U4 spliceosomal RNA: a 148-nucleotide RNA from Coemansia biformis.
RNA sequence: AUCCUUGCUCAGGGAAGUUUCGCGUACCUAUGAAGUGCUUACUGAGGCCGCGAGUCUGCUGAUUGCAAACAACAAAACUUUCCGUCCGCGCGGUGCCGUCCUCUCCGAGGGCGAUGUCGCGCGGAAAUUUUUGGAGGCCCUCACGGGC
Numbered sequence: 001a002u003c004c005u006u007g008c009u010c011a012g013g014g015a016a017g018u019u020u021c022g023c024g025u026a027c028c029u030a031u032g033a034a035g036u037g038c039u040u041a042c043u044g045a046g047g048c049c050g051c052g053a054g055u056c057u058g059c060u061g062a063u064u065g066c067a068a069a070c071a072a073c074a075a076a077a078c079u080u081u082c083c084g085u086c087c088g089c090g091c092g093g094u095g096c097c098g099u100c101c102u103c104u105c106c107g108a109g110g111g112c113g114a115u116g117u118c119g120c121g122c123g124g125a126a127a128u129u130u131u132u133g134g135a136g137g138c139c140c141u142c143a144c145g146g147g148c
Stems, first nucleotide, its partner, number of pairs: 020053005027047002034043003085125011097113007137148004
Rfam links the family to the GO terms U4 snRNP and spliceosomal tri-snRNP complex assembly.
By type it is a spliceosomal small nuclear RNA.